This 98-nucleotide sequence from Kurthia sp. 11kri321 belongs to the Rfam family "TPP riboswitch aptamer (THI element)". Rfam links the family to the GO term thiamine pyrophosphate binding.

[Rfam]
RNA sequence: CUAGAUUUGCGGGGGGACUCUUAGGAGUUGAGAAGGUAAAACCUGACCCUUUGAACCUGUCAGUUAAUACUGGCGUAGGGAGCAGCUGUUUUUCGCAU
Numbered sequence: 001c002u003a004g005a006u007u008u009g010c011g012g013g014g015g016g017a018c019u020c021u022u023a024g025g026a027g028u029u030g031a032g033a034a035g036g037u038a039a040a041a042c043c044u045g046a047c048c049c050u051u052u053g054a055a056c057c058u059g060u061c062a063g064u065u066a067a068u069a070c071u072g073g074c075g076u077a078g079g080g081a082g083c084a085g086c087u088g089u090u091u092u093u094c095g096c097a098u
Stems, first nucleotide, its partner, number of pairs: 007085004011050004016044001017028004035043003056079004060073004